Shown here is a 96-nucleotide RNA sequence from Candidatus Phytoplasma pini, a member of the family "Bacterial small signal recognition particle RNA". Its Rfam clan is "SRP clan". For this family Rfam cites "SRPDB: Signal Recognition Particle Database" (Rosenblad et al., Nucleic Acids Res, 2003). The signal recognition particle (SRP) is a universally conserved ribonucleoprotein involved in the co-translational targeting of proteins to membranes.
RNA sequence: UAAAAAUCAUCAUUCAAUGAAAAAAGAAUGAAUCUGGUCAGGUCUUGAUUGAAGCAGCCAUAAUUUUAGAUUUCUUGUGGAUGGUGAUUUUUAAGA
Numbered sequence: 001u002a003a004a005a006a007u008c009a010u011c012a013u014u015c016a017a018u019g020a021a022a023a024a025a026g027a028a029u030g031a032a033u034c035u036g037g038u039c040a041g042g043u044c045u046u047g048a049u050u051g052a053a054g055c056a057g058c059c060a061u062a063a064u065u066u067u068a069g070a071u072u073u074c075u076u077g078u079g080g081a082u083g084g085u086g087a088u089u090u091u092u093a094a095g096a
Base pairs, nucleotide, nucleotide: 004090005089006088007087008086009085010084011083012082013081014080015077017076019074020073021072022071025067026066027065028064029063035060036059037058038057043052044051